[Rfam]
RNA sequence: CGGGGCGCCUGCGGGGCCCCGAAAUCAAGGCGGGCGCCGGAAGGUGUCCGGUGCCAGCUCGUACCCAACUUGCUCUUUGGAGGAUUUGGCUAUGAGGU
Numbered sequence: 001c002g003g004g005g006c007g008c009c010u011g012c013g014g015g016g017c018c019c020c021g022a023a024a025u026c027a028a029g030g031c032g033g034g035c036g037c038c039g040g041a042a043g044g045u046g047u048c049c050g051g052u053g054c055c056a057g058c059u060c061g062u063a064c065c066c067a068a069c070u071u072g073c074u075c076u077u078u079g080g081a082g083g084a085u086u087u088g089g090c091u092a093u094g095a096g097g098u
Stems, first nucleotide, its partner, number of pairs: 001021006008015002031057001033055008058096006065089004070084002073082003